The record is a 116-nucleotide sequence from gamma proteobacterium IMCC2047, which matches "t44 RNA" in Rfam.
RNA sequence: UGUCUGCUAUUUUAAAUACGCACACAGACCGACACAUGAUCUUGGGUGCUGCGCGAAUUGAUUUUAAAGCUUAAUUGAUUCAAGUGGUUAGAUGAUGGGGUUUGUGGAGGCCUAAC
Numbered sequence: 001u002g003u004c005u006g007c008u009a010u011u012u013u014a015a016a017u018a019c020g021c022a023c024a025c026a027g028a029c030c031g032a033c034a035c036a037u038g039a040u041c042u043u044g045g046g047u048g049c050u051g052c053g054c055g056a057a058u059u060g061a062u063u064u065u066a067a068a069g070c071u072u073a074a075u076u077g078a079u080u081c082a083a084g085u086g087g088u089u090a091g092a093u094g095a096u097g098g099g100g101u102u103u104g105u106g107g108a109g110g111c112c113u114a115a116c
Stems, first nucleotide, its partner, number of pairs: 023106008035097003039093004048088005

Rfam's curators write: This family consists of a number of bacterial RNA genes of between 135 and 170 bases in length. The t44 gene has been identified in several species of enteric bacteria but homologs have also been identified in Pseudomonas and Coxiella species. The match comes from Rfam's covariance-model search (66 bits).